Description
The family of this 136-nucleotide RNA from Glycine max is "mir-393 microRNA precursor family". Lineage of the source: Eukaryota > Tracheophyta > Mesangiospermae > Gunneridae > Glycine subgen. Soja. Rfam links the family to the GO terms RISC complex and miRNA-mediated post-transcriptional gene silencing.

[Rfam]
RNA sequence: GGUGGAGAGUUCCAAAGGGAUCGCAUUGAUCUAAUUCUUGAUCUUCCUGCAUGCAUUUGCUUGCAGUUCUGCUUUUGAGCCAUAUUUUACCGGUUCACUGACUUGGAUCAUGCGAUCCCUUAGGAAUUCUCCAUCG
Numbered sequence: 001g002g003u004g005g006a007g008a009g010u011u012c013c014a015a016a017g018g019g020a021u022c023g024c025a026u027u028g029a030u031c032u033a034a035u036u037c038u039u040g041a042u043c044u045u046c047c048u049g050c051a052u053g054c055a056u057u058u059g060c061u062u063g064c065a066g067u068u069c070u071g072c073u074u075u076u077g078a079g080c081c082a083u084a085u086u087u088u089a090c091c092g093g094u095u096c097a098c099u100g101a102c103u104u105g106g107a108u109c110a111u112g113c114g115a116u117c118c119c120u121u122a123g124g125a126a127u128u129c130u131c132c133a134u135c136g
Stems, first nucleotide, its partner, number of pairs: 002134005008128006015121007023113004028109007